[Rfam]
RNA: mir-335 microRNA precursor family
Organism: Cebus imitator
RNA sequence: CAAUGCAAGGAGGUUAAGAACCUUGAAGAAAGGUUAGCAAUUUGCCUAACCUUUCUUCAAGGUUCUUAACCUCCUUGCAUUGGGUAGUUCCA
Numbered sequence: 001c002a003a004u005g006c007a008a009g010g011a012g013g014u015u016a017a018g019a020a021c022c023u024u025g026a027a028g029a030a031a032g033g034u035u036a037g038c039a040a041u042u043u044g045c046c047u048a049a050c051c052u053u054u055c056u057u058c059a060a061g062g063u064u065c066u067u068a069a070c071c072u073c074c075u076u077g078c079a080u081u082g083g084g085u086a087g088u089u090c091c092a
Stems, first nucleotide, its partner, number of pairs: 005078003009074008018065009028055008037045003